RNA sequence: CGAGUCGGCCGGGCGGUCGCGUCGGGGCCGGUGCGAGCCGGUACCCGCCGAGGAAAGUCCGGACUCCACAGGGCGGGGUGGUGGGUAACACCCACCCGGGGUGACCCGCGGGACAGUGCCACAGAAAACAGACCGCCGGUACCGGGGCCGCGAGGCGCCGGGCACCGGUAAGGGUGAAACGGUGCGGUAAGAGCGCACCAGCGCCCGGGGUGACCCGGGCGGCUUGGUAAACCCCACCCGGAGCAAGGCCAAAAGGUGGGUGGCCGCGAGGCCUCCCGCUGCGCGUGCGUUCGAGGGCGGCCCGCCCGAGCACGCGGGUAGACCGCACGAGGCCGUCGGCAACGGCGGCCCUAGAGAGAUGACCGCCGACCGGCCACGCGCCGGUCACAAAAUCCGGCUUACAGGCCGACUCGUCCC
Numbered sequence: 001c002g003a004g005u006c007g008g009c010c011g012g013g014c015g016g017u018c019g020c021g022u023c024g025g026g027g028c029c030g031g032u033g034c035g036a037g038c039c040g041g042u043a044c045c046c047g048c049c050g051a052g053g054a055a056a057g058u059c060c061g062g063a064c065u066c067c068a069c070a071g072g073g074c075g076g077g078g079u080g081g082u083g084g085g086u087a088a089c090a091c092c093c094a095c096c097c098g099g100g101g102u103g104a105c106c107c108g109c110g111g112g113a114c115a116g117u118g119c120c121a122c123a124g125a126a127a128a129c130a131g132a133c134c135g136c137c138g139g140u141a142c143c144g145g146g147g148c149c150g151c152g153a154g155g156c157g158c159c160g161g162g163c164a165c166c167g168g169u170a171a172g173g174g175u176g177a178a179a180c181g182g183u184g185c186g187g188u189a190a191g192a193g194c195g196c197a198c199c200a201g202c203g204c205c206c207g208g209g210g211u212g213a214c215c216c217g218g219g220c221g222g223c224u225u226g227g228u229a230a231a232c233c234c235c236a237c238c239c240g241g242a243g244c245a246a247g248g249c250c251a252a253a254a255g256g257u258g259g260g261u262g263g264c265c266g267c268g269a270g271g272c273c274u275c276c277c278g279c280u281g282c283g284c285g286u287g288c289g290u291u292c293g294a295g296g297g298c299g300g301c302c303c304g305c306c307c308g309a310g311c312a313c314g315c316g317g318g319u320a321g322a323c324c325g326c327a328c329g330a331g332g333c334c335g336u337c338g339g340c341a342a343c344g345g346c347g348g349c350c351c352u353a354g355a356g357a358g359a360u361g362a363c364c365g366c367c368g369a370c371c372g373g374c375c376a377c378g379c380g381c382c383g384g385u386c387a388c389a390a391a392a393u394c395c396g397g398c399u400u401a402c403a404g405g406c407c408g409a410c411u412c413g414u415c416c417c
Base pairs, nucleotide, nucleotide: 001413002412003411004410005409006408007407008406009405010404011402012367013366014365015364016363017362018361020050021049023047024046025045026044055400056399057398059397060396061395062394063393064243065242066241067240071303072302073301074300076239077238078237079236080235081095082094083093084092085091096110097108098107099106100105111234112233116232117231118228119227120226133173134172135169136168137167138166139165140164142162143161181199182198183197184196185195186194201223202221203220204219205218206217207216208215209214247324248323250321283315284314285313286312287311288310295307296306297305298304331350332349333348334347335346336345337344338343
Rfam assigns this 417-nucleotide RNA sequence from Pseudofrankia asymbiotica to the family "Bacterial RNase P class A". A search with the family's covariance model found it, with a score of 264 bits. It is annotated as a ribozyme.